[Rfam]
Rfam assigns this 135-nucleotide RNA from Bison bison to the family "Small nucleolar RNA SNORA70".
Rfam's curators write: snoRNA U70 seems to be exclusive to mammals and is a member of the H/ACA class of snoRNA which contain H (ANANNA) and ACA box motifs. H/ACA box snoRNAs are involved in the conversion of uridines to pseudouridines (5-ribosyluracil) a constituent of structural RNAs (transfer, ribosomal, small nuclear, and small nucleolar).
On this family, see Charette and Gray, IUBMB Life 2000: "Pseudouridine in RNA: what, where, how, and why".
Gene Ontology terms of the family: RNA processing and nucleolus.

RNA sequence: UUGCAACCAAUUAAGCUGACGGUGCUAUUUUCGCAGGGGAGUGCUGGUGUGCAGUGGCUGCAAACAGCAGGCUCCUGGGUAGUGUAUGAAGCCUGUUGCCCUCAUGGGUUGCCCUAAGGGACCUUGAAGUGAAAG
Numbered sequence: 001u002u003g004c005a006a007c008c009a010a011u012u013a014a015g016c017u018g019a020c021g022g023u024g025c026u027a028u029u030u031u032c033g034c035a036g037g038g039g040a041g042u043g044c045u046g047g048u049g050u051g052c053a054g055u056g057g058c059u060g061c062a063a064a065c066a067g068c069a070g071g072c073u074c075c076u077g078g079g080u081a082g083u084g085u086a087u088g089a090a091g092c093c094u095g096u097u098g099c100c101c102u103c104a105u106g107g108g109u110u111g112c113c114c115u116a117a118g119g120g121a122c123c124u125u126g127a128a129g130u131g132a133a134a135g
Stems, first nucleotide, its partner, number of pairs: 002053004019048002022045001026041001028039001078123003090110005